[Rfam]
RNA: MIR7504 microRNA precursor family
RNA sequence: GAUAGGAGAAUGACAAAUUAUAUUUUUCUCCCUAAUUUUCAGCUUAUUCCCCUAAAAAAAUUCAAAUCUAACUAAAAAUGUUAAAAAUUAAGAGGAAAAAAUAUGAUUUGUCAUUUUCCUAUU
Numbered sequence: 001g002a003u004a005g006g007a008g009a010a011u012g013a014c015a016a017a018u019u020a021u022a023u024u025u026u027u028c029u030c031c032c033u034a035a036u037u038u039u040c041a042g043c044u045u046a047u048u049c050c051c052c053u054a055a056a057a058a059a060a061u062u063c064a065a066a067u068c069u070a071a072c073u074a075a076a077a078a079u080g081u082u083a084a085a086a087a088u089u090a091a092g093a094g095g096a097a098a099a100a101a102u103a104u105g106a107u108u109u110g111u112c113a114u115u116u117u118c119c120u121a122u123u
Stems, first nucleotide, its partner, number of pairs: 001123022023100005029094001031092001033090007041082002045078001047076002